[Rfam]
This 81-nucleotide sequence from Scyliorhinus torazame belongs to the Rfam family "mir-27 microRNA precursor family".
RNA sequence: GACUGGCCUAGAACUUAGCUAUUUGGAGAGCAGUGGCCUUCAAUGAAAUCCUGUUCACAGUGGCUAAGUUCAGUUCCUCUG
Numbered sequence: 001g002a003c004u005g006g007c008c009u010a011g012a013a014c015u016u017a018g019c020u021a022u023u024u025g026g027a028g029a030g031c032a033g034u035g036g037c038c039u040u041c042a043a044u045g046a047a048a049u050c051c052u053g054u055u056c057a058c059a060g061u062g063g064c065u066a067a068g069u070u071c072a073g074u075u076c077c078u079c080u081g
Base pairs, nucleotide, nucleotide: 011071012070013069014068015067016066017065018064019063020062026058028056029055030054031053032052

The literature on the family includes a 2005 paper in Genes Dev by Chen et al., "The developmental miRNA profiles of zebrafish as determined by small RNA cloning".